A member of the RNA family "MIR408 microRNA precursor family" from Oryza sativa, 182 nucleotides long. Rfam's curators put it in the seed alignment. Rfam links the family to the GO terms RISC complex and miRNA-mediated post-transcriptional gene silencing.

[Rfam]
Nucleotides: 182
Stems, first nucleotide, its partner, number of pairs: 016164003020160006028152006074145003082140001091135004
Number, partner (000 for none) and nucleotide at each position: 001000g002000a003000u004000u005000g006000g007000a008000g009000a010000g011000g012000a013000g014000a015000g016164g017163a018162g019000a020160c021159a022158g023157g024156g025155a026000u027000g028152a029151g030150g031149c032148a033147g034000a035000g036000c037000a038000u039000g040000g041000g042000a043000u044000g045000g046000g047000g048000c049000u050000a051000u052000c053000a054000a055000c056000a057000g058000a059000u060000g061000u062000a063000g064000a065000u066000u067000a068000u069000u070000c071000c072000u073000u074145g075144c076143a077000c078000a079000a080000g081000a082140g083000a084000u085000g086000a087000u088000g089000a090000u091135g092134a093133g094132c095000u096000g097000u098000g099000a100000a101000u102000g103000a104000g105000u106000u107000c108000u109000g110000a111000g112000a113000g114000a115000u116000g117000g118000c119000u120000g121000g122000u123000g124000u125000u126000g127000u128000u129000g130000u131000u132094g133093c134092u135091c136000c137000c138000u139000c140082c141000c142000c143076u144075g145074c146000a147033c148032u149031g150030c151029c152028u153000c154000u155025u156024c157023c158022c159021u160020g161000g162018c163017u164016c165000c166000c167000c168000u169000g170000c171000a172000c173000a174000c175000c176000u177000c178000u179000c180000u181000c182000u